RNA sequence: CCGCACUAAAUGGGGUGGUAGCGGUACCCUGUAACCUGCAACCCGCUAUAGCAGGAUUGAAGCCGUGGCUGAGGGUUUUGUCUUUCAGGGUCUGGCCCUAAAAAGUAGUGUUGACAAUUGGGUCUUGCGCAAUGGAGCCUUAUGAACCCCGUCAGGUCCGGGAGGAAGCAGCGGUAAAUAAGUGUCUUCAUGUGCCGCAAGGGUGCCUGAUUCGAGCCAACUAUUAGGGUAACGCCUGGAAGAUAAAAUUCGAAGCAGGUGUGCGG
Numbered sequence: 001c002c003g004c005a006c007u008a009a010a011u012g013g014g015g016u017g018g019u020a021g022c023g024g025u026a027c028c029c030u031g032u033a034a035c036c037u038g039c040a041a042c043c044c045g046c047u048a049u050a051g052c053a054g055g056a057u058u059g060a061a062g063c064c065g066u067g068g069c070u071g072a073g074g075g076u077u078u079u080g081u082c083u084u085u086c087a088g089g090g091u092c093u094g095g096c097c098c099u100a101a102a103a104a105g106u107a108g109u110g111u112u113g114a115c116a117a118u119u120g121g122g123u124c125u126u127g128c129g130c131a132a133u134g135g136a137g138c139c140u141u142a143u144g145a146a147c148c149c150c151g152u153c154a155g156g157u158c159c160g161g162g163a164g165g166a167a168g169c170a171g172c173g174g175u176a177a178a179u180a181a182g183u184g185u186c187u188u189c190a191u192g193u194g195c196c197g198c199a200a201g202g203g204u205g206c207c208u209g210a211u212u213c214g215a216g217c218c219a220a221c222u223a224u225u226a227g228g229g230u231a232a233c234g235c236c237u238g239g240a241a242g243a244u245a246a247a248a249u250u251c252g253a254a255g256c257a258g259g260u261g262u263g264c265g266g
Base pairs, nucleotide, nucleotide: 001266002265003264004263005262006261009058010057011056012030013029014028015027016026017025019023035055036054037053038052039051064259066257067256070253073251074250075249076248077247080244081243082242083241084240085239086238087237088236089235093231094230097228098227099226100225101224105221106220108217109216116212117211118210119209120208121207122206123205124201125200126199127198128197129196130192131191133190134189135188136187137186139182140181141180142179143178149174150173151172152171157166158165159164
Rfam assigns this 266-nucleotide sequence from Halanaerobium sp. DL-01 to the family "Bacterial large signal recognition particle RNA". A search with the family's covariance model found it, with a score of 211 bits. The source organism's lineage runs through Bacteria, Clostridia, Halanaerobiales, Halanaerobiaceae and Halanaerobium. Rfam's curators write: The signal recognition particle (SRP) is a universally conserved ribonucleoprotein involved in the co-translational targeting of proteins to membranes. Rfam links the family to the GO terms signal recognition particle, plasma membrane targeting and SRP-dependent cotranslational protein targeting to membrane, signal sequence recognition. Rfam classes the family as a non-coding RNA gene. The base pairs follow the family's consensus structure, which is taken from published work.